[Rfam]
RNA sequence: GUCUGCCUGUGUGUGAAUGGUGUUCGGCACCAAGGACAGGUAUGUUUGCCUGUGUGUGGCUGGUGUUCAGCUCCAAGGACAGGUAUGUAUGACG
Numbered sequence: 001g002u003c004u005g006c007c008u009g010u011g012u013g014u015g016a017a018u019g020g021u022g023u024u025c026g027g028c029a030c031c032a033a034g035g036a037c038a039g040g041u042a043u044g045u046u047u048g049c050c051u052g053u054g055u056g057u058g059g060c061u062g063g064u065g066u067u068c069a070g071c072u073c074c075a076a077g078g079a080c081a082g083g084u085a086u087g088u089a090u091g092a093c094g
Base pairs, nucleotide, nucleotide: 004085005084006083007082008081009080010079018075019074020073022071023070024069026067027066028065029064030063031062032061034055036053037052038051039050040049041048042047
Annotation: Shown here is a 94-nucleotide RNA from Branchiostoma lanceolatum, a member of the family "mir-2060 microRNA precursor family". Rfam links the family to the GO terms RISC complex and miRNA-mediated post-transcriptional gene silencing. The organism belongs to Branchiostoma, within Eukaryota. The match comes from Rfam's covariance-model search (97 bits). Pairs were carried over by alignment from the consensus structure, which was predicted with RNAalifold.